[Rfam]
RNA sequence: UCUAACUACUAGGGGUGCCCAAAAUGAUGGGCUGAGAGGAUAGGUUUCCGACCCUUAUGGACCUGAUCUGGUUAAUACCAGCGGAGGGAAGUAGUGGGACGAAACU
Numbered sequence: 001u002c003u004a005a006c007u008a009c010u011a012g013g014g015g016u017g018c019c020c021a022a023a024a025u026g027a028u029g030g031g032c033u034g035a036g037a038g039g040a041u042a043g044g045u046u047u048c049c050g051a052c053c054c055u056u057a058u059g060g061a062c063c064u065g066a067u068c069u070g071g072u073u074a075a076u077a078c079c080a081g082c083g084g085a086g087g088g089a090a091g092u093a094g095u096g097g098g099a100c101g102a103a104a105c106u
Stems, first nucleotide, its partner, number of pairs: 006094005011056004016050001017032005039049001042046001062087003068081004
RNA: TPP riboswitch aptamer (THI element)
Organism: Oceanobacillus bengalensis